RNA sequence: GGAUGUGAGGGCGAUCUGUCUGUGACGUCUGUCACCCCGUUGAUCGCCAGGGUUGAUUCAGCUCAUCUGGCUGGCUAGGCAGGUGUCCCCUUCCUCCCUCACAGCUCCGUGUGCAUCCCUCCCGAAGCUGCGUGCUCGGUCAAAGAGGACGACCUUCCCUGAUACAGGCAUGUACCGUUCAUUGGUCAAGGAUAUAAAGUAGCUGCGCUCCCCUGCUAGAACCUCCCAAGCUCAAGUUACCUUGCUUCUGUUGCGAUAAAGAGGCAACACUUCCCGUGGCUUUGAAAGAGGCAACAAUUGCUGCUG
Numbered sequence: 001g002g003a004u005g006u007g008a009g010g011g012c013g014a015u016c017u018g019u020c021u022g023u024g025a026c027g028u029c030u031g032u033c034a035c036c037c038c039g040u041u042g043a044u045c046g047c048c049a050g051g052g053u054u055g056a057u058u059c060a061g062c063u064c065a066u067c068u069g070g071c072u073g074g075c076u077a078g079g080c081a082g083g084u085g086u087c088c089c090c091u092u093c094c095u096c097c098c099u100c101a102c103a104g105c106u107c108c109g110u111g112u113g114c115a116u117c118c119c120u121c122c123c124g125a126a127g128c129u130g131c132g133u134g135c136u137c138g139g140u141c142a143a144a145g146a147g148g149a150c151g152a153c154c155u156u157c158c159c160u161g162a163u164a165c166a167g168g169c170a171u172g173u174a175c176c177g178u179u180c181a182u183u184g185g186u187c188a189a190g191g192a193u194a195u196a197a198a199g200u201a202g203c204u205g206c207g208c209u210c211c212c213c214u215g216c217u218a219g220a221a222c223c224u225c226c227c228a229a230g231c232u233c234a235a236g237u238u239a240c241c242u243u244g245c246u247u248c249u250g251u252u253g254c255g256a257u258a259a260a261g262a263g264g265c266a267a268c269a270c271u272u273c274c275c276g277u278g279g280c281u282u283u284g285a286a287a288g289a290g291g292c293a294a295c296a297a298u299u300g301c302u303g304c305u306g
Stems, first nucleotide, its partner, number of pairs: 001108003005102007013093002018090001024087010035074002037070003042067003046062002117172001118168003122139004127135002140162003147158003202265003208261002214255003224250001229246002276304005281297001282294003